[Rfam]
RNA sequence: AUUCAAACAGAAGGGGUCAUCUUGUGUGUGUCGGGAGUGUUCCAGACUGCGUUCUGUCAUGACGACUUCCAGUAUUGUCCUGUCGGCGAAGGCAUCUAACUAUACUGGGAUUUACAGCUACUCGGGACAGUCUUCAGCUUUGCAUUCGCCUUGUUUCCAAAGACAAGAUCUGCAGCUAAGGUUCAAAGCAGCACCGGGACCCAUCUUGAGUUGGAGUCAAAGUUUCGUACUUGUCUGGUGUUGUGGCGGUCCUAGCCGUGGGUUGAGUCUGAGGUUGCCGGGUCGCACUGCUGGACUGGGUUGUAUCGUUGGAUCUUGGACAGGCCUGGUUGGGAUAGGUAGUCCUGGUUGUCCUCUCGCCAGAAAUGGUGCGGAGGGCAACCCCCCGCUGUGGGGA
Numbered sequence: 001a002u003u004c005a006a007a008c009a010g011a012a013g014g015g016g017u018c019a020u021c022u023u024g025u026g027u028g029u030g031u032c033g034g035g036a037g038u039g040u041u042c043c044a045g046a047c048u049g050c051g052u053u054c055u056g057u058c059a060u061g062a063c064g065a066c067u068u069c070c071a072g073u074a075u076u077g078u079c080c081u082g083u084c085g086g087c088g089a090a091g092g093c094a095u096c097u098a099a100c101u102a103u104a105c106u107g108g109g110a111u112u113u114a115c116a117g118c119u120a121c122u123c124g125g126g127a128c129a130g131u132c133u134u135c136a137g138c139u140u141u142g143c144a145u146u147c148g149c150c151u152u153g154u155u156u157c158c159a160a161a162g163a164c165a166a167g168a169u170c171u172g173c174a175g176c177u178a179a180g181g182u183u184c185a186a187a188g189c190a191g192c193a194c195c196g197g198g199a200c201c202c203a204u205c206u207u208g209a210g211u212u213g214g215a216g217u218c219a220a221a222g223u224u225u226c227g228u229a230c231u232u233g234u235c236u237g238g239u240g241u242u243g244u245g246g247c248g249g250u251c252c253u254a255g256c257c258g259u260g261g262g263u264u265g266a267g268u269c270u271g272a273g274g275u276u277g278c279c280g281g282g283u284c285g286c287a288c289u290g291c292u293g294g295a296c297u298g299g300g301u302u303g304u305a306u307c308g309u310u311g312g313a314u315c316u317u318g319g320a321c322a323g324g325c326c327u328g329g330u331u332g333g334g335a336u337a338g339g340u341a342g343u344c345c346u347g348g349u350u351g352u353c354c355u356c357u358c359g360c361c362a363g364a365a366a367u368g369g370u371g372c373g374g375a376g377g378g379c380a381a382c383c384c385c386c387c388g389c390u391g392u393g394g395g396g397a
Stems, first nucleotide, its partner, number of pairs: 198218003201214003220232004

The family of this 397-nucleotide part of an RNA from Fusarium kuroshium is "Ascomycota telomerase RNA". Taxonomically the source falls in Fusarium solani species complex (Eukaryota, Opisthokonta, Ascomycota, sordariomyceta). A reference for the family is Qi et al. (2013), "The common ancestral core of vertebrate and fungal telomerase RNAs", Nucleic Acids Res. Gene Ontology terms of the family: telomere maintenance via telomerase, telomerase catalytic core complex and telomerase activity. By type it is a non-coding RNA gene. The family is grouped with related families in Rfam's "Telomerase clan".